[Rfam]
RNA: Small nucleolar RNA SNORD83
Organism: Danionella cerebrum
RNA sequence: GCCACAUGAUGUUAAGUAGAUGCCAGCAGCACACUGUGCAAAGAUGACCAAUAUCUAUCACCCUUGACUGAUGGCU
Dot-bracket structure: ((((........................((((...))))................................)))).